This 76-nucleotide RNA sequence from Aurantiacibacter xanthus belongs to the Rfam family "Makes More Granules Regulator RNA (mmgR)".
The organism belongs to Aurantiacibacter, within Bacteria.
The family is grouped with related families in Rfam's "suhB sRNA clan".
It is annotated as a small RNA.
Gene Ontology terms of the family: DNA-templated transcription, termination, response to nitrogen compound and protein binding.
RNA sequence: GGAACAGGCCUUUCAGGCAUCCUCUCCCAAGACUUUCAAAGCCCGGCAUUCGUGCCGGGCUUUUUUUCUGCCCGAA
Dot-bracket structure: .......((((...)))).....................(((((((((....)))))))))...............
Annotation: Pairs were carried over by alignment from the consensus structure. It scores 52 bits against the family's covariance model.